This 102-nucleotide RNA from Caenorhabditis brenneri belongs to the Rfam family "mir-36 microRNA precursor family". Lineage of the source: Eukaryota > Nematoda > Rhabditoidea > Rhabditidae > Caenorhabditis. It is one of the family's seed sequences. Its family is annotated with RISC complex and miRNA-mediated post-transcriptional gene silencing in the Gene Ontology. The base pairs follow the family's consensus structure, which was predicted with WAR.
[Rfam]
RNA sequence: UCUUUAAUUGCGUAGGGGAACCAAGCUAGUUCUUACCGCGGUGCUACAACAAGCAUAACAUCUAACACCGGGUAAAAACUAGCUCGGGUCCCCCUUGCAACA
Number, nucleotide and partner (000 for none) at each position: 001u000002c000003u000004u000005u000006a000007a000008u000009u000010g000011c000012g000013u000014a000015g000016g092017g091018g090019a089020a000021c087022c086023a000024a084025g083026c082027u081028a080029g079030u078031u077032c000033u075034u074035a073036c072037c071038g000039c070040g000041g068042u067043g066044c000045u064046a063047c000048a000049a000050c000051a000052a000053g000054c000055a000056u000057a000058a000059c000060a000061u000062c000063u046064a045065a000066c043067a042068c041069c000070g039071g037072g036073u035074a034075a033076a000077a031078a030079c029080u028081a027082g026083c025084u024085c000086g022087g021088g000089u019090c018091c017092c016093c000094c000095u000096u000097g000098c000099a000100a000101c000102a000